[Rfam]
RNA: Archaeal large subunit ribosomal RNA, nucleotides 1371 to 1726
Organism: Halodesulfurarchaeum formicicum
RNA sequence: CGUAGUAGCAGCGAAAGUCGGGUGAGAAUCUCGACGGCCGAAAGGGAAAGGGUUCCUCGGCACUGUUCGUCAGCCGAGGGUUAGCCGGUCCUCAGUGUUAUCGCAACUCGAAUAACACGAGCGGUAAACGGGUUAAUAUUCCCGUGCCAUCAUACAGUGAAAGUCGACGCCUUGGGGUCGGUCGAGCUGGGCUCUGCCCAGUCGAACCAUCAAAGCCCGUGGAAGCCGUAAUGGCACGAAGCGGGUGAACGGUGGGAUAGGGAAACUCGGCCUUACCUAGGGCCCGUGAAAAGACGAGUAUGAUGUCCGUACCGAGCACCGACACAGGUGCCCUGGCUGAGAAGGCCAAGGCCUGU
Dot-bracket structure: ................((((((.......))))))((((....(((...((...((((((...((.....)).))))))......(((.((...(((((((((.....))).))))))....))...(((((........)))))..((((((((.......(((...((((((((...(((((.(((((.......)))))....((((.....(((((....(((.....))).....)))))......)))).....(....).)))))...)))))))).........)))..)))))))).)))..)).....((......))..)))((((.......)))).))))...
Numbered sequence: 001c002g003u004a005g006u007a008g009c010a011g012c013g014a015a016a017g018u019c020g021g022g023u024g025a026g027a028a029u030c031u032c033g034a035c036g037g038c039c040g041a042a043a044g045g046g047a048a049a050g051g052g053u054u055c056c057u058c059g060g061c062a063c064u065g066u067u068c069g070u071c072a073g074c075c076g077a078g079g080g081u082u083a084g085c086c087g088g089u090c091c092u093c094a095g096u097g098u099u100a101u102c103g104c105a106a107c108u109c110g111a112a113u114a115a116c117a118c119g120a121g122c123g124g125u126a127a128a129c130g131g132g133u134u135a136a137u138a139u140u141c142c143c144g145u146g147c148c149a150u151c152a153u154a155c156a157g158u159g160a161a162a163g164u165c166g167a168c169g170c171c172u173u174g175g176g177g178u179c180g181g182u183c184g185a186g187c188u189g190g191g192c193u194c195u196g197c198c199c200a201g202u203c204g205a206a207c208c209a210u211c212a213a214a215g216c217c218c219g220u221g222g223a224a225g226c227c228g229u230a231a232u233g234g235c236a237c238g239a240a241g242c243g244g245g246u247g248a249a250c251g252g253u254g255g256g257a258u259a260g261g262g263a264a265a266c267u268c269g270g271c272c273u274u275a276c277c278u279a280g281g282g283c284c285c286g287u288g289a290a291a292a293g294a295c296g297a298g299u300a301u302g303a304u305g306u307c308c309g310u311a312c313c314g315a316g317c318a319c320c321g322a323c324a325c326a327g328g329u330g331c332c333c334u335g336g337c338u339g340a341g342a343a344g345g346c347c348a349a350g351g352c353c354u355g356u
Stems, first nucleotide, its partner, number of pairs: 017035006036353004044333003050313002055079006064072002086309003090124002095118006101111003128145005148305008163295003169283008180272005186202005207255004216245005225235003261266001319328002334348004